[Rfam]
RNA: SAH (S-adenosyl-L-homocysteine) riboswitch aptamer
RNA sequence: UGUUCCGAGGAGCGUUGCGACCUCCCCACCCAUCGAGGCCAGGCUCGGAACCGCCGCGCGACGACAUGCCCGCGGCCAUGGCAACCGCGCUCACCCGUC
Numbered sequence: 001u002g003u004u005c006c007g008a009g010g011a012g013c014g015u016u017g018c019g020a021c022c023u024c025c026c027c028a029c030c031c032a033u034c035g036a037g038g039c040c041a042g043g044c045u046c047g048g049a050a051c052c053g054c055c056g057c058g059c060g061a062c063g064a065c066a067u068g069c070c071c072g073c074g075g076c077c078a079u080g081g082c083a084a085c086c087g088c089g090c091u092c093a094c095c096c097g098u099c
Stems, first nucleotide, its partner, number of pairs: 002051007021038004